[Rfam]
RNA sequence: UUUUGGUCAAGAUGCUCCAUUUUGUGAAUUUUCUCCAAAAGAGCAUCUUGUCCAUAGAG
Numbered sequence: 001u002u003u004u005g006g007u008c009a010a011g012a013u014g015c016u017c018c019a020u021u022u023u024g025u026g027a028a029u030u031u032u033c034u035c036c037a038a039a040a041g042a043g044c045a046u047c048u049u050g051u052c053c054a055u056a057g058a059g
Base pairs, nucleotide, nucleotide: 002056004054005053006052008050009049010048011047012046020040021039022038023037024036026035
A member of the RNA family "mir-7386 microRNA precursor family" from Sarcophilus harrisii, 59 nucleotides long. The family has 14 seed sequences and 118 matches in Rfam 15.1. Rfam links the family to the GO terms RISC complex and miRNA-mediated post-transcriptional gene silencing.